[Rfam]
RNA sequence: CGGUAACUCCGAGUCCUUCCGAGGAUAGGAGUAACGGCUGUCUGGCCCAGCCAUCGGUGCGACUGUUCGAUAAACAGACGGGGAAAGUCGCCCCACAAGAGCAGGUACGACCGUAGACCAGCAAAUAUCCCAACGCUUGCAGUGCGGUUCGGGAAGCCGCGUCCUUCAGGACGCGGA
Dot-bracket structure: ..((..((((..(((((....))))).))))..))(((((.......)))))..((((....((((((............(((........)))....)))))).....))))..............((((.(...............).))))..((((((((....)))))))).
RNA: Sense overlapping transcript RNA 0042 (sot)